[Rfam]
RNA sequence: CCAGAGGGCCGGGCGGCCGCGUUAUGCGCAAGCAUACCGAGGAAAGUCCGGGCUCCACGGAAACACGGUGCCGGGUAACGCCCGGCGGUCCCGGUUCGCCGGGGUCAGGGAAAGUGCCACAGAGAGCAGACCGCUCACUGGUCUUCGGGCUGAGGGCAAGGGUGAAAGGGUGCGGCAAGAGCGCACCGCGCGACCGGCAACGGAAGCGGCACGGCAAACCCCACCGGGAGCAAGAUCGAAUAGGGGCCGCAUAUGGGGAGUUCCGCCUCGCGGCCCGGGUUGAUUGCUUGAGCCCCCACGCAAGUGCGGGCCUAGAGGAAUGGUCGCCUAUCGCGCGCACCUCCCCUUGGGGAAAGGGCCGCGUGGACAGAACCCGGCUUAUAGGCCCUCUGGCAAC
Numbered sequence: 001c002c003a004g005a006g007g008g009c010c011g012g013g014c015g016g017c018c019g020c021g022u023u024a025u026g027c028g029c030a031a032g033c034a035u036a037c038c039g040a041g042g043a044a045a046g047u048c049c050g051g052g053c054u055c056c057a058c059g060g061a062a063a064c065a066c067g068g069u070g071c072c073g074g075g076u077a078a079c080g081c082c083c084g085g086c087g088g089u090c091c092c093g094g095u096u097c098g099c100c101g102g103g104g105u106c107a108g109g110g111a112a113a114g115u116g117c118c119a120c121a122g123a124g125a126g127c128a129g130a131c132c133g134c135u136c137a138c139u140g141g142u143c144u145u146c147g148g149g150c151u152g153a154g155g156g157c158a159a160g161g162g163u164g165a166a167a168g169g170g171u172g173c174g175g176c177a178a179g180a181g182c183g184c185a186c187c188g189c190g191c192g193a194c195c196g197g198c199a200a201c202g203g204a205a206g207c208g209g210c211a212c213g214g215c216a217a218a219c220c221c222c223a224c225c226g227g228g229a230g231c232a233a234g235a236u237c238g239a240a241u242a243g244g245g246g247c248c249g250c251a252u253a254u255g256g257g258g259a260g261u262u263c264c265g266c267c268u269c270g271c272g273g274c275c276c277g278g279g280u281u282g283a284u285u286g287c288u289u290g291a292g293c294c295c296c297c298a299c300g301c302a303a304g305u306g307c308g309g310g311c312c313u314a315g316a317g318g319a320a321u322g323g324u325c326g327c328c329u330a331u332c333g334c335g336c337g338c339a340c341c342u343c344c345c346c347u348u349g350g351g352g353a354a355a356g357g358g359c360c361g362c363g364u365g366g367a368c369a370g371a372a373c374c375c376g377g378c379u380u381a382u383a384g385g386c387c388c389u390c391u392g393g394c395a396a397c
Base pairs, nucleotide, nucleotide: 001393002392003391004390005389006388007387008386009385010384011382012328013327014326015325016324017323018322020039021038023036024035025034026033027032044380045379046378048377049376050375051374052373053230054229055228056227063262066226067225068224069223070222071085072084073083074082075081086108087106088105089104090103091102092101093100094099109221110220114219115218116215117214118213131161132160133157134156135155136154169187170186171185172184173183174182188210189208190207191206194203195202196201234285235284236283237282244276245275246274247273248272249271255269256268257267258266292311293310294309295308297306298305299304